[Rfam]
RNA sequence: GGCUCGAUGAUUGAACGCCUUUGAAUGGCGAUAUACGCUAUUCUGAGUAUAGCUAAUGCAUUGCUGAAAAGAUUUUGAAGUUGUAUGAGAGCU
Numbered sequence: 001g002g003c004u005c006g007a008u009g010a011u012u013g014a015a016c017g018c019c020u021u022u023g024a025a026u027g028g029c030g031a032u033a034u035a036c037g038c039u040a041u042u043c044u045g046a047g048u049a050u051a052g053c054u055a056a057u058g059c060a061u062u063g064c065u066g067a068a069a070a071g072a073u074u075u076u077g078a079a080g081u082u083g084u085a086u087g088a089g090a091g092c093u
Stems, first nucleotide, its partner, number of pairs: 001093005
RNA: Small nucleolar RNA U54